[Rfam]
The record is a 99-nucleotide RNA from Brassica rapa, which matches "mir-395 microRNA precursor family" in Rfam. Taxonomically the source falls in Brassica (Eukaryota, Pentapetalae, Brassicaceae, Brassiceae). Rfam's curators write: mir-395 was identified in both Arabidopsis thaliana and Oryza sativa computationally and was later experimentally verified. mir-395 is thought to target mRNAs coding for ATP sulphurylases. Pairs were carried over by alignment from the consensus structure, which was predicted with PFOLD.
RNA sequence: AUGUUUCCUAGAGUUCCUCUGAGCACUUCAUUGGAGAUACCAUUUAUUUUCUAUCAAAAUGUAUUCCACUGAAGUGUUUGGGGGAACUCCUGGACUCAU
Numbered sequence: 001a002u003g004u005u006u007c008c009u010a011g012a013g014u015u016c017c018u019c020u021g022a023g024c025a026c027u028u029c030a031u032u033g034g035a036g037a038u039a040c041c042a043u044u045u046a047u048u049u050u051c052u053a054u055c056a057a058a059a060u061g062u063a064u065u066c067c068a069c070u071g072a073a074g075u076g077u078u079u080g081g082g083g084g085a086a087c088u089c090c091u092g093g094a095c096u097c098a099u
Stems, first nucleotide, its partner, number of pairs: 006094003011089010022079002024076007032068004
Dot-bracket structure: .....(((..((((((((((.(((((((((.((((.............................)))).))))))).))))))))))))..))).....
It scores 75 bits against the family's covariance model.